[Rfam]
RNA sequence: CCCCUGGUCCGGGCCCCUCUGGUGAAGCUGCCGGUGCGCUCACGAUGUCGGACCUGACGA
Numbered sequence: 001c002c003c004c005u006g007g008u009c010c011g012g013g014c015c016c017c018u019c020u021g022g023u024g025a026a027g028c029u030g031c032c033g034g035u036g037c038g039c040u041c042a043c044g045a046u047g048u049c050g051g052a053c054c055u056g057a058c059g060a
Stems, first nucleotide, its partner, number of pairs: 006054007022043004027039002
Overview:
terC RNA: a 60-nucleotide sequence from Bradyrhizobium sp. ORS 278. Rfam classes the family as a cis-regulatory element. Rfam 15.1 lists 1,112 matches to the family in 772 species. The sequence is in the family's curated seed alignment.